[Rfam]
RNA sequence: UUCGAUAGCUAGGGGAGCCUCACGGCUGAGAGUCCGCUCGAUCGGACGACCCUCACAACCUGACCUGGGUAAUACCAGCGUAGGGAAGCCGGACAGACAGCGG
Numbered sequence: 001u002u003c004g005a006u007a008g009c010u011a012g013g014g015g016a017g018c019c020u021c022a023c024g025g026c027u028g029a030g031a032g033u034c035c036g037c038u039c040g041a042u043c044g045g046a047c048g049a050c051c052c053u054c055a056c057a058a059c060c061u062g063a064c065c066u067g068g069g070u071a072a073u074a075c076c077a078g079c080g081u082a083g084g085g086a087a088g089c090c091g092g093a094c095a096g097a098c099a100g101c102g103g
Base pairs, nucleotide, nucleotide: 006091008089009088010087011053012052013051014050017026018025019024033046034045035044036043059084060083061082062081065078066077067076068075
Description
The family of this 103-nucleotide RNA sequence from Candidatus Nitrospira inopinata is "TPP riboswitch aptamer (THI element)". Rfam describes the family as follows. Vitamin B(1) in its active form thiamin pyrophosphate (TPP) is an essential coenzyme that is synthesised by coupling of pyrimidine and thiazole moieties in bacteria. The match comes from Rfam's covariance-model search (66 bits). The family's consensus secondary structure is taken from published work. The organism belongs to Nitrospira, within Bacteria.